[Rfam]
RNA sequence: UACAUACAUGUACAUACAUGUACAUUGUACAUACAUGUACAUACAUGUACAUUGUACAUACAUGUACAUUGUACAUACAUGUACAUACAUGUACAUUGUACA
Numbered sequence: 001u002a003c004a005u006a007c008a009u010g011u012a013c014a015u016a017c018a019u020g021u022a023c024a025u026u027g028u029a030c031a032u033a034c035a036u037g038u039a040c041a042u043a044c045a046u047g048u049a050c051a052u053u054g055u056a057c058a059u060a061c062a063u064g065u066a067c068a069u070u071g072u073a074c075a076u077a078c079a080u081g082u083a084c085a086u087a088c089a090u091g092u093a094c095a096u097u098g099u100a101c102a
Stems, first nucleotide, its partner, number of pairs: 005093007012082004018032006033055002036051004062076005
The record is a 102-nucleotide RNA sequence from Acanthaster planci, which matches "Mitochondrial DNA control region secondary structure A" in Rfam. By type it is an antisense RNA. The match comes from Rfam's covariance-model search (45 bits). Lineage of the source: Eukaryota > Asteroidea > Valvatacea > Acanthasteridae > Acanthaster. The literature on the family includes a 2008 paper in Mol Biol Evol by Pereira et al., "Evidence for variable selective pressures at a large secondary structure of the human mitochondrial DNA control region".